Nucleotides: 301
Base pairs, nucleotide, nucleotide: 001018002017003016004015005014006013024033025032026031039301041299042298043297044296045295046294047293048292049291052289053288054285055284056283057280058279059278062275065272066271068269069268070267072266073265075259076258077257078256079255080254081253083252085251086250087249089248090247095246096245097244098243099242100241101240102239104234105233107232108231109230110229111228113225114224115223116222117221118220119219120218121217123162124161125160126159127158128157129156130155131154132153133152134151135150136149138147139146140145163168170215171214172213173212174211181206182205183204188199189198190197
Number, partner (000 for none) and nucleotide at each position: 001018g002017g003016c004015c005014u006013a007000g008000c009000a010000a011000c012000g013006u014005g015004g016003g017002c018001c019000u020000g021000u022000a023000a024033c025032c026031c027000a028000a029000g030000u031026g032025g033024g034000g035000g036000c037000a038000u039301g040000u041299g042298g043297g044296a045295g046294a047293u048292g049291g050000g051000a052289c053288u054285u055284u056283g057280g058279g059278u060000c061000a062275g063000c064000c065272c066271a067000u068269u069268g070267g071000a072266u073265c074000g075259g076258g077257u078256c079255c080254a081253g082000u083252g084000u085251u086250a087249g088000c089248u090247g091000c092000u093000u094000g095246c096245u097244g098243g099242u100241c101240u102239g103000c104234c105233c106000a107232u108231u109230c110229c111228a112000a113225g114224c115223c116222g117221a118220g119219a120218g121217u122000u123162g124161g125160g126159c127158u128157g129156u130155g131154u132153g133152a134151u135150c136149u137000g138147g139146g140145c141000g142000a143000a144000g145140g146139c147138u148000g149136g150135g151134g152133u153132c154131g155130c156129a157128c158127a159126g160125c161124u162123c163168c164000u165000a166000a167000a168163g169000a170215g171214g172213a173212g174211g175000g176000c177000a178000a179000u180000g181206c182205g183204u184000g185000a186000g187000g188199c189198u190197g191000g192000u193000u194000u195000c196000a197190c198189a199188g200000a201000g202000c203000a204183g205182c206181g207000a208000c209000c210000a211174c212173c213172u214171c215170c216000c217121g218120c219119u220118c221117u222116c223115g224114g225113c226000a227000g228111u229110g230109g231108a232107a233105g234104g235000a236000u237000a238000a239102c240101g241100g242099g243098u244097c245096g246095g247090u248089g249087c250086u251085a252083c253081u254080u255079g256078g257077g258076c259075c260000a261000c262000c263000a264000u265073g266072g267070u268069c269068a270000c271066u272065g273000c274000a275062u276000g277000c278059a279058c280057u281000c282000u283056u284055a285054a286000u287000c288053a289052g290000a291049c292048c293047a294046u295045c296044u297043c298042u299041u300000u301039u

Shown here is a 301-nucleotide RNA sequence, a member of the family "Plant signal recognition particle RNA". The family's RNA type in Rfam is non-coding RNA gene. Pairs were carried over by alignment from the consensus structure, which is taken from published work. The family has 63 seed sequences and 4,988 matches in Rfam 15.1. Clan: SRP clan.